[Rfam]
RNA sequence: CACUCAUCAAGAGCAGUGGAGGGACUGGCCCUAUGAAACUGCGGCAACCGUUGGCGUAGGCCAAAAAGGUGCCAAUUCCUAUAGGUAUUGCCUAUGAGAUGGGAG
Numbered sequence: 001c002a003c004u005c006a007u008c009a010a011g012a013g014c015a016g017u018g019g020a021g022g023g024a025c026u027g028g029c030c031c032u033a034u035g036a037a038a039c040u041g042c043g044g045c046a047a048c049c050g051u052u053g054g055c056g057u058a059g060g061c062c063a064a065a066a067a068g069g070u071g072c073c074a075a076u077u078c079c080u081a082u083a084g085g086u087a088u089u090g091c092c093u094a095u096g097a098g099a100u101g102g103g104a105g
Base pairs, nucleotide, nucleotide: 001105003103004102005101006100007099008098013042014041015040016039017038021031022030023029027079028078043073044072045071046070048069049068051064052063053062077097082094083093084092085091086090

Rfam assigns this 105-nucleotide sequence from Selenomonas sputigena to the family "SAM riboswitch aptamer (S box leader)". Rfam's curators write: The SAM riboswitch is found upstream of a number of genes which code for proteins involved in methionine or cysteine biosynthesis in Gram-positive bacteria. The SAM riboswitch acts at the level of transcription termination control. The predicted structure consists of a complex stem-loop region followed by a single stem loop terminator region. An alternative and mutually exclusive form involves bases in the 3' segment of helix 1 with those in the 5' region of helix 5 to form a structure termed the anti-terminator form. The sequence is in the family's curated seed alignment. The source organism's lineage runs through Bacteria, Selenomonadales, Selenomonadaceae, Selenomonas and Selenomonas sputigena.